[Rfam]
RNA sequence: AACUCAGUUAUUUCAACUGAUCACUUUAGUUUUAUAUGCUAUUCUGAUUGUAGUUGUUGAAAAGUAAGACUUAUGGGAGCU
Numbered sequence: 001a002a003c004u005c006a007g008u009u010a011u012u013u014c015a016a017c018u019g020a021u022c023a024c025u026u027u028a029g030u031u032u033u034a035u036a037u038g039c040u041a042u043u044c045u046g047a048u049u050g051u052a053g054u055u056g057u058u059g060a061a062a063a064g065u066a067a068g069a070c071u072u073a074u075g076g077g078a079g080c081u
Base pairs, nucleotide, nucleotide: 001081003079004078005077
RNA: Small nucleolar RNA U54
Organism: Zizania palustris